Shown here is a 131-nucleotide RNA from Streptococcus sanguinis, a member of the family "Ribosomal protein L20 leader". The source organism's lineage runs through Bacteria, Bacillati, Bacilli, Streptococcus and Streptococcus sanguinis. Rfam classes the family as a cis-regulatory leader.
RNA sequence: UGAGAAAAGCAGAAGUGAGAGCUUCUCGCCUUGCGACUAACGUUGUCUGGCUCUACAGGAUUCAGUUUCAGUAAUGAAAUAUUAUCGUGUAGUGCGGGUUUGCGUUAGCAGGUCCGCACUUGUUUUUCUCU
Number, nucleotide and partner (000 for none) at each position: 001u000002g000003a000004g000005a000006a000007a000008a000009g000010c000011a026012g025013a024014a023015g022016u021017g000018a000019g000020a000021g016022c015023u014024u013025c012026u011027c000028g051029c050030c049031u000032u000033g046034c045035g044036a043037c042038u000039a000040a000041c000042g037043u036044u035045g034046u033047c000048u000049g030050g029051c028052u000053c000054u000055a000056c000057a000058g000059g000060a000061u000062u000063c000064a000065g000066u000067u000068u000069c000070a000071g000072u000073a000074a000075u000076g000077a000078a000079a000080u000081a000082u000083u000084a000085u000086c000087g000088u000089g000090u000091a000092g000093u118094g117095c116096g115097g114098g113099u112100u111101u110102g109103c000104g000105u000106u000107a000108g000109c102110a101111g100112g099113u098114c097115c096116g095117c094118a093119c000120u000121u000122g000123u000124u000125u000126u000127u000128c000129u000130c000131u000